Background
A member of the RNA family "ZMP/ZTP riboswitch aptamer (pfl RNA motif)" from Cellulomonas chitinilytica, 87 nucleotides long. It scores 57 bits against the family's covariance model. Its family is annotated with regulation of purine nucleotide biosynthetic process and one-carbon metabolic process in the Gene Ontology.
[Rfam]
RNA sequence: UGUCCGGGUCGCGACUGGCGCAGAGGUGGGGAACCACCGGGGAGCGACGCAGCAGCAGACUUCGGGUCGGACGCCUGGGCCCACGGU
Numbered sequence: 001u002g003u004c005c006g007g008g009u010c011g012c013g014a015c016u017g018g019c020g021c022a023g024a025g026g027u028g029g030g031g032a033a034c035c036a037c038c039g040g041g042g043a044g045c046g047a048c049g050c051a052g053c054a055g056c057a058g059a060c061u062u063c064g065g066g067u068c069g070g071a072c073g074c075c076u077g078g079g080c081c082c083a084c085g086g087u
Stems, first nucleotide, its partner, number of pairs: 004052001006050001008048005015041002017075004026037004064082005
Dot-bracket structure: ...(.(.(((((..(([[[[.....((((....))))..))..))))).).)...........(((((...]]]]..))))).....